[Rfam]
This 73-nucleotide RNA sequence belongs to the Rfam family "Fluoride riboswitch aptamer (crcB RNA motif)". The match comes from Rfam's covariance-model search (46 bits).

RNA sequence: UGCGCGCUUGGAGAUGGCGUUCCUCCUGGGAAACCGAACCGCAGCAUUCGCUGCCGAUGACGCCUACAGUUAC
Number, nucleotide and partner (000 for none) at each position: 001u000002g000003c000004g000005c000006g000007c000008u000009u000010g026011g025012a024013g023014a000015u000016g064017g063018c062019g061020u060021u059022c000023c013024u012025c011026c010027u000028g000029g000030g000031a000032a000033a000034c000035c000036g000037a000038a000039c000040c000041g054042c053043a052044g051045c000046a000047u000048u000049c000050g000051c044052u043053g042054c041055c000056g000057a000058u000059g021060a020061c019062g018063c017064c016065u000066a000067c000068a000069g000070u000071u000072a000073c000